[Rfam]
RNA sequence: CGGGAGAAGCAUUGUUAAGGAACUCGGCAAAAUGACCCCGUAACUUCGGGAGAAGGGGUGCCUCUGAAAGGAGGCCGCAGAGAAUAGGCUCAAGCAACUGUUUAGCAAAAACACAGGUCUAUGCGAAACCGAAAGGUGAGGUAUAUGGGCUGACGCCUGCCCGGUGCUGGAAGGUUAAGAGGAGGAGUCAGGCAACGAAGCUCCGAAUUUAAGCCCCAGUAAACGGCGGCCGUAACUAUAACGGUCCUAAGGUAGCGAAAUUCCUUGUCGGGUAAGUUCCGACCCGCACGAAAGGCGUAAUGAUUUGAGCGCUGUCUCGACAAUGCACCCG
Number, nucleotide and partner (000 for none) at each position: 001c331002g330003g329004g328005a000006g000007a000008a000009g326010c325011a324012u323013u322014g321015u320016u319017a000018a317019g316020g315021a000022a000023c000024u000025c000026g000027g000028c000029a000030a000031a000032a000033u000034g000035a059036c058037c057038c056039c055040g000041u000042a000043a000044c049045u000046u000047c000048g000049g044050g000051a000052g000053a000054a000055g039056g038057g037058g036059u035060g075061c074062c073063u072064c071065u070066g000067a000068a000069a000070g065071g064072a063073g062074g061075c060076c080077g000078c000079a000080g076081a000082g000083a000084a000085u000086a000087g000088g310089c309090u308091c307092a306093a305094g304095c302096a301097a000098c000099u113100g112101u111102u000103u000104a000105g000106c000107a000108a000109a000110a000111a101112c100113a099114c000115a000116g151117g150118u149119c148120u147121a146122u145123g144124c141125g000126a000127a000128a137129c136130c135131g000132a000133a000134a000135g130136g129137u128138g000139a000140g000141g124142u000143a000144u123145a122146u121147g120148g119149g118150c117151u116152g000153a000154c297155g296156c295157c294158u000159g227160c226161c225162c000163g000164g224165u223166g220167c219168u218169g217170g216171a000172a000173g215174g214175u213176u000177a000178a000179g209180a208181g000182g000183a000184g204185g203186a202187g201188u200189c000190a000191g196192g000193c000194a000195a000196c191197g000198a000199a000200g188201c187202u186203c185204c184205g000206a000207a000208u180209u179210u000211a000212a000213g175214c174215c173216c170217c169218a168219g167220u166221a000222a000223a165224c164225g161226g160227c159228g246229g245230c244231c243232g242233u241234a000235a000236c000237u000238a000239u000240a000241a233242c232243g231244g230245u229246c228247c251248u000249a000250a000251g247252g000253u000254a000255g000256c000257g284258a000259a000260a000261u000262u000263c000264c000265u000266u000267g283268u282269c281270g280271g279272g278273u000274a000275a000276g000277u000278u272279c271280c270281g269282a268283c267284c257285c000286g000287c000288a000289c000290g000291a000292a000293a000294g157295g156296c155297g154298u000299a000300a000301u096302g095303a000304u094305u093306u092307g091308a090309g089310c088311g000312c000313u000314g000315u020316c019317u018318c000319g016320a015321c014322a013323a012324u011325g010326c009327a000328c004329c003330c002331g001
RNA: Bacterial large subunit ribosomal RNA, nucleotides 1686 to 2016